The record is a 175-nucleotide RNA sequence from Pontibacillus chungwhensis, which matches "Lysine riboswitch aptamer" in Rfam. It scores 118 bits against the family's covariance model. Pairs were carried over by alignment from the consensus structure, which is taken from published work. The source organism's lineage runs through Bacteria, Bacillati, Bacillota, Pontibacillus and Pontibacillus chungwhensis.
[Rfam]
RNA sequence: UCUGACAAUAGAGGCGCGAGUAUGAUGAGUAGCUUUCCGGAGGACAAUGGGUCCAGCGAAGGAAAGGGAAAGGCAGAUCGCCGAGAUAGAGAAUAGCCAUUCUAUUCUUUGUUGGGCUGGUAUUGAACAAAUGCCAGACUGUCGCAAUGCGAAGUUGUGGAGCACUAUUGAAGAG
Numbered sequence: 001u002c003u004g005a006c007a008a009u010a011g012a013g014g015c016g017c018g019a020g021u022a023u024g025a026u027g028a029g030u031a032g033c034u035u036u037c038c039g040g041a042g043g044a045c046a047a048u049g050g051g052u053c054c055a056g057c058g059a060a061g062g063a064a065a066g067g068g069a070a071a072g073g074c075a076g077a078u079c080g081c082c083g084a085g086a087u088a089g090a091g092a093a094u095a096g097c098c099a100u101u102c103u104a105u106u107c108u109u110u111g112u113u114g115g116g117c118u119g120g121u122a123u124u125g126a127a128c129a130a131a132u133g134c135c136a137g138a139c140u141g142u143c144g145c146a147a148u149g150c151g152a153a154g155u156u157g158u159g160g161a162g163c164a165c166u167a168u169u170g171a172a173g174a175g
Base pairs, nucleotide, nucleotide: 006170007169008168009167010166011165016081017080018079019078021077023075024074033066034065035064036063037062038061085113086112087111088110089109090108091107092106093105094104095103096102114140115139117137118136119135120134121133122132123131124130142160143159144158145157146156147155148154